[Rfam]
RNA sequence: UGACGUUCUCAGGGCGGGGUGAAAUUCCCCACCGGCGGUAAUUGCCUGAUGGCAUCAGCCCGCGAGCGCCUUUUUCAAAGUGAUGAAAAAGGGUCAAGCAGAUCCGGUGUAAUUCCGGAGCCGACGGUUAAAGUCCGGAUGGAAGAGAACAGAA
Numbered sequence: 001u002g003a004c005g006u007u008c009u010c011a012g013g014g015c016g017g018g019g020u021g022a023a024a025u026u027c028c029c030c031a032c033c034g035g036c037g038g039u040a041a042u043u044g045c046c047u048g049a050u051g052g053c054a055u056c057a058g059c060c061c062g063c064g065a066g067c068g069c070c071u072u073u074u075u076c077a078a079a080g081u082g083a084u085g086a087a088a089a090a091g092g093g094u095c096a097a098g099c100a101g102a103u104c105c106g107g108u109g110u111a112a113u114u115c116c117g118g119a120g121c122c123g124a125c126g127g128u129u130a131a132a133g134u135c136c137g138g139a140u141g142g143a144a145g146a147g148a149a150c151a152g153a154a
Stems, first nucleotide, its partner, number of pairs: 005150006017029003031134002033123002035063004058121002066099002103119005125137003